[Rfam]
RNA sequence: CCCGGUCCUCGGUAGUGAUCCUCGCUGUGCACCCCGCGGUGCACCACGUGUUCGCCGGUACAGGCGGCGCACCACGUGCACGCGGCACACAGCGCGGGUCUCGAUCGAAGAUCGGU
Numbered sequence: 001c002c003c004g005g006u007c008c009u010c011g012g013u014a015g016u017g018a019u020c021c022u023c024g025c026u027g028u029g030c031a032c033c034c035c036g037c038g039g040u041g042c043a044c045c046a047c048g049u050g051u052u053c054g055c056c057g058g059u060a061c062a063g064g065c066g067g068c069g070c071a072c073c074a075c076g077u078g079c080a081c082g083c084g085g086c087a088c089a090c091a092g093c094g095c096g097g098g099u100c101u102c103g104a105u106c107g108a109a110g111a112u113c114g115g116u
Stems, first nucleotide, its partner, number of pairs: 002115006009108005017100005023094007